About this RNA:
This 96-nucleotide RNA sequence from Shewanella baltica belongs to the Rfam family "Group II catalytic intron D1-D4-1". The sequence is in the family's curated seed alignment. NCBI's taxonomy places the organism under Bacteria, Pseudomonadota, Gammaproteobacteria, Shewanellaceae, Shewanella baltica.
[Rfam]
RNA sequence: CGUAGGCUAGAGGUGAGUUGGCAUGUGAUUAAGCAGAAGUCAGCAGACGGCAUGUAGCCCAACGCCCAUCGUAAUGGAUGGGACACGGUGAAAGCC
Numbered sequence: 001c002g003u004a005g006g007c008u009a010g011a012g013g014u015g016a017g018u019u020g021g022c023a024u025g026u027g028a029u030u031a032a033g034c035a036g037a038a039g040u041c042a043g044c045a046g047a048c049g050g051c052a053u054g055u056a057g058c059c060c061a062a063c064g065c066c067c068a069u070c071g072u073a074a075u076g077g078a079u080g081g082g083a084c085a086c087g088g089u090g091a092a093a094g095c096c
Base pairs, nucleotide, nucleotide: 001027002026004024006022007021008020009019010018039048040047041046049096050095051094057089058088059087065082066081067080